[Rfam]
RNA: SAM-I/IV (S-adenosyl methionine) riboswitch aptamer
Organism: Sphingobacterium zhuxiongii
RNA sequence: GUAGAGUAUUCAGAAUUGCGAUAGCAAUACCAACCGAGUGAAGACACCGCGGUGGUAAAACAAUACGGGUAUUAUGCCAAAAUAAACGCGAUACG
Dot-bracket structure: .....(((((....(((((....)))))(((..(((.((...[..))..))).))).....))))).((((...))))..........]......